A member of the RNA family "R2 RNA element" from Agrilus planipennis, 205 nucleotides long. By type it is a cis-regulatory element. NCBI's taxonomy places the organism under Eukaryota, Ecdysozoa, Mandibulata, Coleoptera, Agrilus. This family represents the 3' UTR region of the R2 retrotransposable element. For this family Rfam cites "Secondary structure models of the 3' untranslated regions of diverse R2 RNAs" (Ruschak et al., RNA, 2004). The family has 15 seed sequences and 3,698 matches in Rfam 15.1.

RNA sequence: ACAUUUUCAAAAAACCGCUUAACAAAUGCCCUGCUAGGCUACAGCGUAUGAUGUUAUGCUGAAGAGGACCCUAGUUGGUCCUAGAACGACCUGAGGUAGAGGGGUUUUAGUCGGUAGGUCCGAGGACUUCUUCCUCGGGAAUCCGACACUACCCAGUCGUACGGACGGCUGGGUGUCUUCUGAAGAUUUCCCCUCUUCCACGAAA
Numbered sequence: 001a002c003a004u005u006u007u008c009a010a011a012a013a014a015c016c017g018c019u020u021a022a023c024a025a026a027u028g029c030c031c032u033g034c035u036a037g038g039c040u041a042c043a044g045c046g047u048a049u050g051a052u053g054u055u056a057u058g059c060u061g062a063a064g065a066g067g068a069c070c071c072u073a074g075u076u077g078g079u080c081c082u083a084g085a086a087c088g089a090c091c092u093g094a095g096g097u098a099g100a101g102g103g104g105u106u107u108u109a110g111u112c113g114g115u116a117g118g119u120c121c122g123a124g125g126a127c128u129u130c131u132u133c134c135u136c137g138g139g140a141a142u143c144c145g146a147c148a149c150u151a152c153c154c155a156g157u158c159g160u161a162c163g164g165a166c167g168g169c170u171g172g173g174u175g176u177c178u179u180c181u182g183a184a185g186a187u188u189u190c191c192c193c194u195c196u197u198c199c200a201c202g203a204a205a
Stems, first nucleotide, its partner, number of pairs: 075204002078201002095199002098196002101192003110147005119139008149175001151174005